[Rfam]
RNA sequence: UUGCGUUUUUGUGAUGAGAUAGCAAUUACCUUGGGACACCUAUGAAAUGCCUUGAUUAGUGUAAAUUUUAACAACUGAACCA
Numbered sequence: 001u002u003g004c005g006u007u008u009u010u011g012u013g014a015u016g017a018g019a020u021a022g023c024a025a026u027u028a029c030c031u032u033g034g035g036a037c038a039c040c041u042a043u044g045a046a047a048u049g050c051c052u053u054g055a056u057u058a059g060u061g062u063a064a065a066u067u068u069u070a071a072c073a074a075c076u077g078a079a080c081c082a
Stems, first nucleotide, its partner, number of pairs: 002082002005080002
RNA: Small nucleolar RNA Me28S-Gm3113
Organism: Drosophila pseudoobscura